[Rfam]
RNA sequence: CGGAAAGUGCCUUCUGAACUGGUGCGGACAGGACCUUAGACAAGCCCAAUCCUCCCAGCUCAAAGGCACUUUUCUCAUGUAAACGAUCAG
Numbered sequence: 001c002g003g004a005a006a007g008u009g010c011c012u013u014c015u016g017a018a019c020u021g022g023u024g025c026g027g028a029c030a031g032g033a034c035c036u037u038a039g040a041c042a043a044g045c046c047c048a049a050u051c052c053u054c055c056c057a058g059c060u061c062a063a064a065g066g067c068a069c070u071u072u073u074c075u076c077a078u079g080u081a082a083a084c085g086a087u088c089a090g
Base pairs, nucleotide, nucleotide: 002074003073004072005071006070007069008068009067010066011065012064013063015062016061017060019058020057021056022055024054026052027051028050031047034044
A member of the RNA family "Actinobacteria sRNA Ms_IGR-7" from Microbispora sp. ATCC PTA-5024, 90 nucleotides long. The family has 14 seed sequences and 463 matches in Rfam 15.1. The organism belongs to Microbispora, within Bacteria. It is annotated as a small RNA. A reference for the family is Li et al. (2013), "Identification of small RNAs in Mycobacterium smegmatis using heterologous Hfq", RNA.